[Rfam]
RNA sequence: GAUCAAUGAUGAGAAUAGACUAAUCUGAGCAUCAGAAGACUUUCCAGUCUCUCUGAUGCAUGGUCUCUGUAGUUCUCUUU
Numbered sequence: 001g002a003u004c005a006a007u008g009a010u011g012a013g014a015a016u017a018g019a020c021u022a023a024u025c026u027g028a029g030c031a032u033c034a035g036a037a038g039a040c041u042u043u044c045c046a047g048u049c050u051c052u053c054u055g056a057u058g059c060a061u062g063g064u065c066u067c068u069g070u071a072g073u074u075c076u077c078u079u080u
Stems, first nucleotide, its partner, number of pairs: 029059005037050004
Background:
The record is an 80-nucleotide RNA sequence from Suricata suricatta, which matches "Small nucleolar RNA U2-19" in Rfam. It is annotated as a C/D-box small nucleolar RNA. NCBI's taxonomy places the organism under Eukaryota, Dipnotetrapodomorpha, Tetrapoda, Herpestidae, Suricata. A reference for the family is Tycowski et al. (2004), "Guide RNAs with 5' Caps and Novel Box C/D snoRNA-like Domains for Modification of snRNAs in Metazoa", Curr Biol.